[Rfam]
A member of the RNA family "Enterobacteria greA leader" from Dickeya dadantii, 124 nucleotides long. The source organism's lineage runs through Bacteria, Pseudomonadati, Enterobacterales, Pectobacteriaceae and Dickeya dadantii.
RNA sequence: GUCAUACUACGGCGCAUCAAGGGAUAAAGUAAACGAUGACCCUGGUGGAACUCUGGGGUAAAAUGCGUAUCAAAAUGCAAAAACGCGUCUGGCCUGGAAGGAAUGUUCCGGGCAAGGCUAUUUU
Numbered sequence: 001g002u003c004a005u006a007c008u009a010c011g012g013c014g015c016a017u018c019a020a021g022g023g024a025u026a027a028a029g030u031a032a033a034c035g036a037u038g039a040c041c042c043u044g045g046u047g048g049a050a051c052u053c054u055g056g057g058g059u060a061a062a063a064u065g066c067g068u069a070u071c072a073a074a075a076u077g078c079a080a081a082a083a084c085g086c087g088u089c090u091g092g093c094c095u096g097g098a099a100g101g102a103a104u105g106u107u108c109c110g111g112g113c114a115a116g117g118c119u120a121u122u123u124u
Base pairs, nucleotide, nucleotide: 001040002039003038004037005036010035011034014030015029041048042047057071058070059069060068088117089116090115092113093112094111095110096109097108098107